[Rfam]
RNA sequence: AAAAUUUCAGUAACAGUGAUUUCACUAAAUUUU
Dot-bracket structure: (((((((.((((((...).))..))))))))))
The family of this 33-nucleotide RNA sequence from Puma concolor is "Iron response element II". IRE, TFRC, SLC40A1, SDHB, SLC11A2, CDC42BPA, ACO2, ALAS2_H.SAPIENS, CDC14A, EPAS1, ALAS2, qoxD, Hao1, NDUFS1, transferrin, Aconitate. It is annotated as a cis-regulatory element. Gene Ontology term of the family: response to iron ion. The organism belongs to Puma, within Eukaryota.